[Rfam]
The record is a 228-nucleotide RNA sequence from Streptomyces sp. YIM 130001, which matches "Streptomyces sRNA 4677" in Rfam.
Rfam describes the family as follows. Located in the intergenic region between anti-sigma factor SCO4677 gene and a putative regulatory protein gene SCO4676. scr4677 expression requires the SCO4677 activity and scr4677 sRNA itself seem to affect the levels of the SCO4676-associated transcripts.
The source organism's lineage runs through Bacteria, Bacillati, Actinomycetota, Actinomycetes and Streptomyces.
The base pairs follow the family's consensus structure.
The match comes from Rfam's covariance-model search (99 bits).
The family has 12 seed sequences and 563 matches in Rfam 15.1.
RNA sequence: CGUCGCGGCGCCCUGCGACACAAGUACGUAAAAGACGGAGGGAACGACCCUUCCCAACCCCACCCACCUCCCCGUCACUCACACGAGUGAAAGGCGCCAACUGGGUUGGAUUUGUGGCGGGUUGGCGGGCAUAUGCUCGCACCAGACAACAGCAGACAUGAGACGACCCCCGCCGGGACUAGCGAUCCCGGACGAGGGUCUGACCACACAGGAAGUAGCACCUUCCCG
Numbered sequence: 001c002g003u004c005g006c007g008g009c010g011c012c013c014u015g016c017g018a019c020a021c022a023a024g025u026a027c028g029u030a031a032a033a034g035a036c037g038g039a040g041g042g043a044a045c046g047a048c049c050c051u052u053c054c055c056a057a058c059c060c061c062a063c064c065c066a067c068c069u070c071c072c073c074g075u076c077a078c079u080c081a082c083a084c085g086a087g088u089g090a091a092a093g094g095c096g097c098c099a100a101c102u103g104g105g106u107u108g109g110a111u112u113u114g115u116g117g118c119g120g121g122u123u124g125g126c127g128g129g130c131a132u133a134u135g136c137u138c139g140c141a142c143c144a145g146a147c148a149a150c151a152g153c154a155g156a157c158a159u160g161a162g163a164c165g166a167c168c169c170c171c172g173c174c175g176g177g178a179c180u181a182g183c184g185a186u187c188c189c190g191g192a193c194g195a196g197g198g199u200c201u202g203a204c205c206a207c208a209c210a211g212g213a214a215g216u217a218g219c220a221c222c223u224u225c226c227c228g
Base pairs, nucleotide, nucleotide: 008207010205075090076089077088078087079086080085108138109137165200166199167198168197169196171194172193175189176188177187178186211226212225213224214223215222